The record is a 130-nucleotide RNA from Cepphus grylle, which matches "U11 spliceosomal RNA" in Rfam. A search with the family's covariance model found it, with a score of 110 bits. The family's consensus secondary structure is taken from published work.

RNA sequence: AAAAAGGGCUUCUGCCGUGUGUGGCACGAGGGGGUCUUGCGGCCGCUCUCGCGGAAUCGACAUCAAGAGAUUUCGGAAGCAUAAUUUUUGUAGAAGGGGGUUGCCGGUAAUCGCUUGUUCUGGCGCCCCG
Numbered sequence: 001a002a003a004a005a006g007g008g009c010u011u012c013u014g015c016c017g018u019g020u021g022u023g024g025c026a027c028g029a030g031g032g033g034g035u036c037u038u039g040c041g042g043c044c045g046c047u048c049u050c051g052c053g054g055a056a057u058c059g060a061c062a063u064c065a066a067g068a069g070a071u072u073u074c075g076g077a078a079g080c081a082u083a084a085u086u087u088u089u090g091u092a093g094a095a096g097g098g099g100g101u102u103g104c105c106g107g108u109a110a111u112c113g114c115u116u117g118u119u120c121u122g123g124c125g126c127c128c129c130g
Stems, first nucleotide, its partner, number of pairs: 008080005013026005027051006034044001036042001052075007098128004103124005109119003
Rfam classes the family as a spliceosomal small nuclear RNA.